Nucleotides: 160
Base pairs, nucleotide, nucleotide: 006157008155010153011148013100015143016142017141020137021136022135026132027131028130029129030128031127032126039118040117041116042115043114045076046075047074055066056065057064058063085108086107087106090103091102092101
Number, partner (000 for none) and nucleotide at each position: 001000u002000u003000c004000g005000a006157u007000a008155u009000c010153u011148g012000g013100u014000a015143g016142g017141u018000g019000a020137g021136g022135c023000u024000c025000c026132u027131a028130c029129a030128g031127g032126g033000a034000u035000a036000c037000g038000g039118a040117c041116u042115g043114c044000u045076g046075c047074c048000g049000c050000g051000g052000a053000g054000u055066g056065g057064u058063g059000g060000a061000g062000a063058c064057a065056c066055u067000a068000u069000g070000a071000g072000a073000a074047g075046g076045u077000u078000u079000g080000a081000a082000c083000a084000g085108g086107u087106u088000a089000u090103a091102u092101c093000g094000a095000c096000a097000a098000c099000a100013a101092g102091g103090u104000a105000u106087a107086a108085c109000a110000u111000a112000a113000u114043g115042c116041a117040g118039u119000u120000u121000c122000a123000u124000c125000g126032c127031c128030c129029u130028g131027u132026a133000a134000a135022g136021c137020u138000a139000a140000a141017g142016c143015u144000c145000a146000a147000a148011c149000a150000u151000c152000g153010g154000u155008g156000c157006g158000g159000a160000a

A member of the RNA family "M-box riboswitch aptamer (ykoK leader)" from Ruminococcaceae bacterium CPB6, 160 nucleotides long. The source organism's lineage runs through Bacteria, Bacillota, Clostridia, Eubacteriales and Oscillospiraceae. A search with the family's covariance model found it, with a score of 93 bits. Gene Ontology terms of the family: response to magnesium ion and regulation of gene expression.